[Rfam]
RNA sequence: GGCUGGUCCGAUGGUAGUGGGUUAUCAGAACUUAUUACCAUUAGUGUCACUAAAGUUGGUAUUCACCCCCCCCCCACUGCUAAAUUUGACUGGCUUUAA
Numbered sequence: 001g002g003c004u005g006g007u008c009c010g011a012u013g014g015u016a017g018u019g020g021g022u023u024a025u026c027a028g029a030a031c032u033u034a035u036u037a038c039c040a041u042u043a044g045u046g047u048c049a050c051u052a053a054a055g056u057u058g059g060u061a062u063u064c065a066c067c068c069c070c071c072c073c074c075c076a077c078u079g080c081u082a083a084a085u086u087u088g089a090c091u092g093g094c095u096u097u098a099a
Stems, first nucleotide, its partner, number of pairs: 001095008010087002015082001016078006033061003037057001
RNA: Y RNA
Organism: Microcebus murinus